This 74-nucleotide RNA from Schistosoma mansoni belongs to the Rfam family "mir-3479 microRNA precursor family".

RNA sequence: CAUGUUUGUGAGGGGGAUGUUUGUGCAAUUUAGUGUUGUAAAUAUAUUGCACUAACCUUCGCCUUGCAAAUAUA
Numbered sequence: 001c002a003u004g005u006u007u008g009u010g011a012g013g014g015g016g017a018u019g020u021u022u023g024u025g026c027a028a029u030u031u032a033g034u035g036u037u038g039u040a041a042a043u044a045u046a047u048u049g050c051a052c053u054a055a056c057c058u059u060c061g062c063c064u065u066g067c068a069a070a071u072a073u074a
Stems, first nucleotide, its partner, number of pairs: 002073012015060003019056003023052007031044002
Dot-bracket structure: .((((((((((((.(((.(((.(((((((.((..........)).))))))).))).))).)))))))))))).

Rfam's curators put it in the seed alignment.